[Rfam]
RNA sequence: AACUGAACUUUGUUCAGUACCUUUAUUUUCUGGCGCUACUUCUUCUACUUUGGUCGGUUGAGAAGUAG
Number, nucleotide and partner (000 for none) at each position: 001a000002a018003c017004u016005g015006a014007a013008c012009u000010u000011u000012g008013u007014u006015c005016a004017g003018u002019a000020c000021c000022u000023u000024u000025a000026u000027u000028u000029u000030c000031u000032g000033g000034c000035g000036c068037u067038a066039c065040u064041u063042c062043u061044u060045c000046u000047a058048c057049u056050u000051u000052g000053g000054u000055c000056g049057g048058u047059u000060g044061a043062g042063a041064a040065g039066u038067a037068g036
This 68-nucleotide RNA from Mycobacteroides abscessus belongs to the Rfam family "Enterococcus sRNA A5". A reference for the family is Innocenti et al. (2015), "Whole-genome mapping of 5' RNA ends in bacteria by tagged sequencing: a comprehensive view in Enterococcus faecalis", RNA. It is annotated as an antisense RNA. The family's consensus secondary structure was predicted with RNAfold.